Overview
Rfam assigns this 140-nucleotide sequence from Pseudanabaenococcus habilitatus to the family "Guanidine-I riboswitch aptamer". The pairing is the family consensus, mapped onto this sequence. From the family's description: This family represents a conserved RNA structure found upstream of the ykkC and yxkD genes in Bacillus subtilis and related genes in other bacteria. The function of this family is unclear although it has been suggested that it may function to switch on efflux pumps and detoxification systems in response to harmful environmental molecules.
RNA sequence: AAUAUUAGCUUCUAGGGUUCCGAUUAAGGUGUAAACAACUUUAAGGCUGGUCCGAGAGAAGCAGCUAAUUAAAAAAAGUUUUUGUAAAACUUGAUCAAUUUGAUCAAUUAGUCACACGGCGGGAUAAAAGCCCGGGAGAG
Number, nucleotide and partner (000 for none) at each position: 001a000002a000003u000004a000005u000006u000007a000008g062009c061010u060011u059012c058013u000014a000015g053016g052017g000018u000019u000020c050021c049022g047023a000024u043025u000026a041027a040028g039029g000030u000031g000032u000033a000034a000035a000036c000037a000038a000039c028040u027041u026042u000043a024044a000045g000046g000047c022048u000049g021050g020051u000052c016053c015054g000055a000056g000057a000058g012059a011060a010061g009062c008063a000064g112065c111066u110067a109068a108069u107070u106071a000072a000073a000074a000075a000076a000077a000078g000079u000080u000081u000082u000083u000084g000085u000086a000087a000088a000089a000090c000091u000092u000093g000094a000095u000096c000097a000098a000099u000100u000101u000102g000103a000104u000105c000106a070107a069108u068109u067110a066111g065112u064113c000114a000115c135116a000117c138118g000119g000120c000121g133122g132123g131124a000125u000126a000127a000128a000129a000130g000131c123132c122133c121134g000135g115136g000137a000138g117139a000140g000